[Rfam]
RNA: mir-9195 microRNA precursor family
RNA sequence: AGAGGCUCUCCGUGGCCCGGGUGGAACGCUUGCCUCGUUGCUGCGGCGAUGAAGCGAGCAUUCCACCAGGCCACUCAUUCUGCUCGC
Number, nucleotide and partner (000 for none) at each position: 001a000002g000003a000004g084005g083006c082007u000008c000009u000010c000011c000012g074013u073014g072015g071016c070017c069018c000019g000020g067021g066022u065023g064024g063025a062026a061027c000028g059029c058030u057031u056032g055033c054034c000035u000036c000037g050038u049039u048040g047041c046042u000043g000044c000045g000046g041047c040048g039049a038050u037051g000052a000053a000054g033055c032056g031057a030058g029059c028060a000061u026062u025063c024064c023065a022066c021067c020068a000069g017070g016071c015072c014073a013074c012075u000076c000077a000078u000079u000080c000081u000082g006083c005084u004085c000086g000087c000